[Rfam]
RNA sequence: GGAGUGACCCGGAGCCGCCUCCUUGGUUCUGUCCACAUUUUGUUGCUGCACAUAACCAUGGAGGUGGUUGCGGUGCAGCC
Numbered sequence: 001g002g003a004g005u006g007a008c009c010c011g012g013a014g015c016c017g018c019c020u021c022c023u024u025g026g027u028u029c030u031g032u033c034c035a036c037a038u039u040u041u042g043u044u045g046c047u048g049c050a051c052a053u054a055a056c057c058a059u060g061g062a063g064g065u066g067g068u069u070g071c072g073g074u075g076c077a078g079c080c
Stems, first nucleotide, its partner, number of pairs: 002080001005077002009073003013069010024058005030052003034048002036045002
Notes:
This 80-nucleotide RNA sequence from Lymphocryptovirus macacinegamma4 belongs to the Rfam family "mir-BART10 microRNA precursor family". The family's consensus secondary structure was predicted with RNAalifold. The family has 2 seed sequences and 5 matches in Rfam 15.1. The organism belongs to Lymphocryptovirus macacinegamma4, within Viruses. It is one of the family's seed sequences.